This 102-nucleotide RNA from Nitratireductor indicus belongs to the Rfam family "rpsB sRNA".
The literature on the family includes a 2009 paper in BMC Genomics by Meyer et al., "Identification of candidate structured RNAs in the marine organism 'Candidatus Pelagibacter ubique'".
The family's consensus secondary structure is taken from published work.
The match comes from Rfam's covariance-model search (50 bits).
By type it is a small RNA.
RNA sequence: CACACACGGAUCAUUGGUUUCGGUCGGGAGACAUCCGGUCGGCGCCUCCGGUGGCGGGUUUCCGCCUGAAGGUCCGUGGAGGUUCAACCGGAAAGGAAACUA
Number, nucleotide and partner (000 for none) at each position: 001c081002a000003c079004a000005c078006a077007c076008g075009g074010a073011u000012c072013a000014u000015u000016g046017g045018u000019u000020u000021c000022g000023g000024u000025c037026g036027g035028g000029a000030g000031a000032c000033a000034u000035c027036c026037g025038g000039u000040c000041g000042g000043c000044g000045c017046c016047u000048c000049c000050g000051g000052u000053g066054g065055c064056g063057g062058g000059u000060u000061u000062c057063c056064g055065c054066c053067u000068g000069a000070a000071g000072g012073u010074c009075c008076g007077u006078g005079g003080a000081g001082g000083u000084u000085c000086a000087a000088c000089c000090g000091g000092a000093a000094a000095g000096g000097a000098a000099a000100c000101u000102a000